[Rfam]
RNA sequence: CACGGCCCAGCCUGACUGAAGCUGUAGGUCAGGGGAAGGACUAGAGGUUAGUGGAGACCCCGUGCCACAA
Dot-bracket structure: (((((((...(((((((.........)))))))....))......((((......)))))))))......
RNA: Flavivirus DB element